[Rfam]
RNA sequence: UGACUUUAGUCAAAGUCAAACUGCUUCAAAUUUGACCAAGUUUAUAGAAAAUAAUAAUAAUAUUUUUGACCCAAGAUAAAUAUAUUUAAUAAAACUAAUUUGGUAAUGUAAAUAUUACUAUAUUUGUCUAUAAACUUGAUCAAACUUGAAGCAGUUUGACUUUGACCAAAGUCAA
Dot-bracket structure: ....(((.(.((((((((((((((((....(((((.........((((.((...((..(((((((.((..(((((.......................)))))...)).)))))))..))...)).)))).........)))))....)))))))))))))))).).))).....